[Rfam]
Guanidine-I riboswitch aptamer: a 115-nucleotide sequence from Goekera deserti. Lineage of the source: Bacteria > Bacillati > Actinomycetes > Geodermatophilales > Goekera. The pairing is the family consensus, mapped onto this sequence. From the family's description: This family represents a conserved RNA structure found upstream of the ykkC and yxkD genes in Bacillus subtilis and related genes in other bacteria.

RNA sequence: GCGGGGCGCGUCUAGGGUUCCGUCGCCGGUCACGGUGGGUCUGGUCCGAGAGAUGCAGGCAGGGUCCCGCGUACGCCGCGGCCCUGUCCCACGGCGGGAGAAAAGCCCGGGAGGC
Numbered sequence: 001g002c003g004g005g006g007c008g009c010g011u012c013u014a015g016g017g018u019u020c021c022g023u024c025g026c027c028g029g030u031c032a033c034g035g036u037g038g039g040u041c042u043g044g045u046c047c048g049a050g051a052g053a054u055g056c057a058g059g060c061a062g063g064g065u066c067c068c069g070c071g072u073a074c075g076c077c078g079c080g081g082c083c084c085u086g087u088c089c090c091a092c093g094g095c096g097g098g099a100g101a102a103a104a105g106c107c108c109g110g111g112a113g114g115c
Stems, first nucleotide, its partner, number of pairs: 008056005015047002020044002022041001023038006058088008090110001092113001096108003